[Rfam]
RNA sequence: ACCGGUCCUCGGUAGUGGCCACCGGAACACCUGCUUCCCGCAGCGAGGUCCGUUGGCUUCGAUCGACGGCCGGC
Dot-bracket structure: .((((((.(((((...(((((.((((...(((.............))))))).)))))...))))).)))))).